RNA: mir-460 microRNA precursor family
RNA sequence: UGUCUGGACCUCCUCAUUGUGCAUGCUGUGUGUGUCUGUGUGAAGCACACAGCGCCUGCAAUGUGGAGGCUGAGACC
Numbered sequence: 001u002g003u004c005u006g007g008a009c010c011u012c013c014u015c016a017u018u019g020u021g022c023a024u025g026c027u028g029u030g031u032g033u034g035u036c037u038g039u040g041u042g043a044a045g046c047a048c049a050c051a052g053c054g055c056c057u058g059c060a061a062u063g064u065g066g067a068g069g070c071u072g073a074g075a076c077c
Stems, first nucleotide, its partner, number of pairs: 012066002015063007024054001026052006